[Rfam]
RNA: NoRC associated RNA, pRNA
Organism: Pan troglodytes
RNA sequence: UGAUGGUGGUUAUUUUGGGGACGGAUGCCCGUGUUGUGGUUUCCUGGUCCAGCGGCGUCGUCGGUGACUCAAUCUCCUGCCCCCGGGGA
Numbered sequence: 001u002g003a004u005g006g007u008g009g010u011u012a013u014u015u016u017g018g019g020g021a022c023g024g025a026u027g028c029c030c031g032u033g034u035u036g037u038g039g040u041u042u043c044c045u046g047g048u049c050c051a052g053c054g055g056c057g058u059c060g061u062c063g064g065u066g067a068c069u070c071a072a073u074c075u076c077c078u079g080c081c082c083c084c085g086g087g088g089a
Stems, first nucleotide, its partner, number of pairs: 004086001006084001008083002018078004027068001029066001030064001033061002036058003